[Rfam]
RNA sequence: GGAGAGAUGGCCGAGCGGUCUAAGGCGCUGGUUUAAGGCACCAGUCCCUUCGGGGGCGUGGGUUCGAAUCCCACUCUCUUCA
Numbered sequence: 001g002g003a004g005a006g007a008u009g010g011c012c013g014a015g016c017g018g019u020c021u022a023a024g025g026c027g028c029u030g031g032u033u034u035a036a037g038g039c040a041c042c043a044g045u046c047c048c049u050u051c052g053g054g055g056g057c058g059u060g061g062g063u064u065c066g067a068a069u070c071c072c073a074c075u076c077u078c079u080u081c082a
Stems, first nucleotide, its partner, number of pairs: 001081007010026003028044005058074005
Dot-bracket structure: (((((((..(((...........))).(((((.......))))).............(((((.......)))))))))))).
RNA: tRNA